[Rfam]
Lysine riboswitch aptamer: a 181-nucleotide RNA sequence from Sporosarcina sp. Marseille-Q4063.
Pairs were carried over by alignment from the consensus structure, which is taken from published work.
The source organism's lineage runs through Bacteria, Bacilli, Caryophanales, Caryophanaceae and Sporosarcina.
RNA sequence: CGAUAGGGUAGAGGCUGCAUUGCUUAAGAGUAACUCACGCGAGAAAGACAUUCGAAGACCGUGUGUGAAAGGAAGCUUUGCCGAAGUUUAAGCGGUUAGUCAAGCCGAUUAAGCUGGGGUCAUUCCGAAUAGGGAUGACACUGUCAUACUGCGAAUGCGCGUAUGAUGAGCUACAGAUCGU
Numbered sequence: 001c002g003a004u005a006g007g008g009u010a011g012a013g014g015c016u017g018c019a020u021u022g023c024u025u026a027a028g029a030g031u032a033a034c035u036c037a038c039g040c041g042a043g044a045a046a047g048a049c050a051u052u053c054g055a056a057g058a059c060c061g062u063g064u065g066u067g068a069a070a071g072g073a074a075g076c077u078u079u080g081c082c083g084a085a086g087u088u089u090a091a092g093c094g095g096u097u098a099g100u101c102a103a104g105c106c107g108a109u110u111a112a113g114c115u116g117g118g119g120u121c122a123u124u125c126c127g128a129a130u131a132g133g134g135a136u137g138a139c140a141c142u143g144u145c146a147u148a149c150u151g152c153g154a155a156u157g158c159g160c161g162u163a164u165g166a167u168g169a170g171c172u173a174c175a176g177a178u179c180g181u
Stems, first nucleotide, its partner, number of pairs: 008174004017081003022076004033066002036063004085115007093107004116142002119139008144166006